[Rfam]
RNA sequence: AGGCUGCAGCUAAAUCAAUCCACAGAAGUUUACUGGUCGGUCGUUGUUUCAGAUCUAAUCUGAUUUUCGUCGACGAAUCUGCUUACCGAACUUCUUACAUUU
Numbered sequence: 001a002g003g004c005u006g007c008a009g010c011u012a013a014a015u016c017a018a019u020c021c022a023c024a025g026a027a028g029u030u031u032a033c034u035g036g037u038c039g040g041u042c043g044u045u046g047u048u049u050c051a052g053a054u055c056u057a058a059u060c061u062g063a064u065u066u067u068c069g070u071c072g073a074c075g076a077a078u079c080u081g082c083u084u085a086c087c088g089a090a091c092u093u094c095u096u097a098c099a100u101u102u
Base pairs, nucleotide, nucleotide: 024095025094026093027092028091029090030089035083036082037081039079040078041077043074044073045072046071
RNA: Small nucleolar RNA snoR109
Organism: Cucumis sativus